The family of this 77-nucleotide sequence from Saimiri boliviensis is "mir-1910 microRNA precursor family". The match comes from Rfam's covariance-model search (76 bits). NCBI's taxonomy places the organism under Eukaryota, Deuterostomia, Teleostomi, Eutheria, Saimiri boliviensis.

RNA sequence: CUUCCCCUCAGCCAGUCCUGCGCCCACUGCCUUCACAGUGUCCUUGGAGGGAGGCAGACGCAGGAUGAUGAGGGUAA
Numbered sequence: 001c002u003u004c005c006c007c008u009c010a011g012c013c014a015g016u017c018c019u020g021c022g023c024c025c026a027c028u029g030c031c032u033u034c035a036c037a038g039u040g041u042c043c044u045u046g047g048a049g050g051g052a053g054g055c056a057g058a059c060g061c062a063g064g065a066u067g068a069u070g071a072g073g074g075u076a077a
Stems, first nucleotide, its partner, number of pairs: 005074006015066007027054002030051005